[Rfam]
RNA sequence: AGCUUUGCACACUGGCAGUAUCAUAGCCAAUGAGGUUUAUCCAAGGUACGAUUAUUGCUACUUAAAAACAAAAAAGUAAAAGAAAAAACAAACAAUAAAAAAACCUAUAACACACCUGUUAUUAGAUUCCAGCCCUAACCUUUGUUUUUGAGUUAUUAUUACCUGCAGUUAAGACUG
Number, nucleotide and partner (000 for none) at each position: 001a000002g000003c000004u000005u000006u000007g000008c000009a000010c000011a000012c000013u000014g000015g000016c000017a000018g000019u000020a052021u051022c050023a000024u048025a000026g047027c046028c045029a000030a000031u000032g000033a000034g042035g041036u000037u000038u000039a000040u000041c035042c034043a000044a000045g028046g027047u026048a024049c000050g022051a021052u020053u000054a000055u000056u000057g000058c000059u000060a000061c000062u000063u000064a000065a000066a000067a000068a000069c000070a000071a000072a000073a000074a000075a000076g000077u000078a000079a000080a000081a000082g000083a000084a000085a000086a000087a000088a153089c152090a000091a000092a149093c000094a147095a146096u000097a000098a143099a141100a000101a000102a000103a000104c000105c000106u000107a000108u000109a000110a000111c000112a000113c000114a000115c000116c000117u000118g000119u000120u000121a000122u000123u000124a000125g000126a000127u000128u000129c000130c000131a000132g000133c000134c000135c000136u000137a000138a000139c000140c000141u099142u000143u098144g000145u000146u095147u094148u000149u092150g000151a000152g089153u088154u000155a000156u000157u000158a000159u000160u000161a000162c000163c000164u000165g000166c177167a176168g175169u174170u000171a000172a000173g000174a169175c168176u167177g166
Shown here is a 177-nucleotide RNA from Propithecus coquereli, a member of the family "U4 spliceosomal RNA". The family's RNA type in Rfam is spliceosomal small nuclear RNA. Gene Ontology terms of the family: U4 snRNP and spliceosomal tri-snRNP complex assembly. It scores 55 bits against the family's covariance model. The organism belongs to Propithecus, within Eukaryota. The family's consensus secondary structure is taken from published work.